[Rfam]
A member of the RNA family "Clostridiales-2 RNA" from Alkaliphilus metalliredigens, 80 nucleotides long. It is annotated as a small RNA.

RNA sequence: CUAGACAUGGGGAGUGCAGAGGGGUAUUCCCCUCUGUCGGUUUAGGAGGGUGCUCAGGUCGUAAGACCGUCGAAGGGAAC
Numbered sequence: 001c002u003a004g005a006c007a008u009g010g011g012g013a014g015u016g017c018a019g020a021g022g023g024g025u026a027u028u029c030c031c032c033u034c035u036g037u038c039g040g041u042u043u044a045g046g047a048g049g050g051u052g053c054u055c056a057g058g059u060c061g062u063a064a065g066a067c068c069g070u071c072g073a074a075g076g077g078a079a080c
Stems, first nucleotide, its partner, number of pairs: 016037008057068004